[Rfam]
RNA sequence: AGCAUUCUUUAGCAAACCUUUUUAAAGGAAGGGACGCAAAGCCAUGGGUCUAAGGAUGUAAAUCUAUGAUAGCCAGGUUGCAUAA
Numbered sequence: 001a002g003c004a005u006u007c008u009u010u011a012g013c014a015a016a017c018c019u020u021u022u023u024a025a026a027g028g029a030a031g032g033g034a035c036g037c038a039a040a041g042c043c044a045u046g047g048g049u050c051u052a053a054g055g056a057u058g059u060a061a062a063u064c065u066a067u068g069a070u071a072g073c074c075a076g077g078u079u080g081c082a083u084a085a
Stems, first nucleotide, its partner, number of pairs: 012037002017032006040079004045075003048070003055064003